[Rfam]
RNA sequence: GAAGGAUUUGGCCCUUCGGAGUCGCCCUGCGGGGGGAGGCUUCAAACCACCUCAUGCUGCGUUGGCUGAAGACCGUCGUGGUGAGCGAUGAGGAAAAGGCGUCGUGAGAGGCAGGUAGGG
Numbered sequence: 001g002a003a004g005g006a007u008u009u010g011g012c013c014c015u016u017c018g019g020a021g022u023c024g025c026c027c028u029g030c031g032g033g034g035g036g037a038g039g040c041u042u043c044a045a046a047c048c049a050c051c052u053c054a055u056g057c058u059g060c061g062u063u064g065g066c067u068g069a070a071g072a073c074c075g076u077c078g079u080g081g082u083g084a085g086c087g088a089u090g091a092g093g094a095a096a097a098g099g100c101g102u103c104g105u106g107a108g109a110g111g112c113a114g115g116u117a118g119g120g
Base pairs, nucleotide, nucleotide: 001017002016003015004014005013018043019042020041021040022039023038025036026035027034028033047120048119050093051092052091053090054089055088056082057081059079060078061077063075064074065073098116100114103111
Rfam assigns this 120-nucleotide sequence from Streptomyces olivochromogenes to the family "Group II catalytic intron D1-D4-2". Its family is annotated with Group II intron splicing in the Gene Ontology. It scores 92 bits against the family's covariance model. The literature on the family includes a 2001 paper in Trends Genet by Bonen and Vogel, "The ins and outs of group II introns". About the family: Group II introns are found in rRNA, tRNA and mRNA of organelles in fungi, plants and protists, and also in mRNA in bacteria. The organism belongs to Streptomyces, within Bacteria.